[Rfam]
RNA sequence: AUUGCAAGCUAGAAGCCAUGGAAGAAGUGCUCAUGGCACAGCCUGUCCGAUUCAAGGAGUCUGCAAAUUCUACU
Dot-bracket structure: ...........[..[[...((.(((((((.......))).]]]...(.(((((...))))).)....)))).))